[Rfam]
Nucleotides: 085
Base pairs, nucleotide, nucleotide: 010069011068012067013066020063023060028055029054030053031052032051035049036048037047071080072079073078
Number, partner (000 for none) and nucleotide at each position: 001000u002000a003000c004000u005000u006000c007000a008000u009000u010069g011068u012067u013066g014000u015000g016000u017000u018000u019000u020063u021000a022000g023060g024000g025000u026000u027000g028055c029054u030053a031052u032051u033000u034000u035049u036048u037047g038000u039000c040000a041000g042000a043000a044000g045000a046000a047037c048036a049035a050000u051032a052031a053030u054029a055028g056000a057000c058000u059000c060023c061000g062000a063020a064000c065000u066013c067012a068011a069010u070000u071080g072079a073078g074000u075000a076000a077000a078073c079072u080071u081000u082000u083000u084000u085000c

This 85-nucleotide RNA from Lonepinella koalarum belongs to the Rfam family "Aggregatibacter sRNA 69". Rfam describes the family as follows. Validated by RT-PCR. Has Rho-independent terminator. It is annotated as a small RNA. A reference for the family is Oogai et al. (2017), "Small RNA repertoires and their intraspecies variation in Aggregatibacter actinomycetemcomitans", DNA Res. Taxonomically the source falls in Lonepinella (Bacteria, Pseudomonadati, Pasteurellales, Pasteurellaceae). The match comes from Rfam's covariance-model search (45 bits).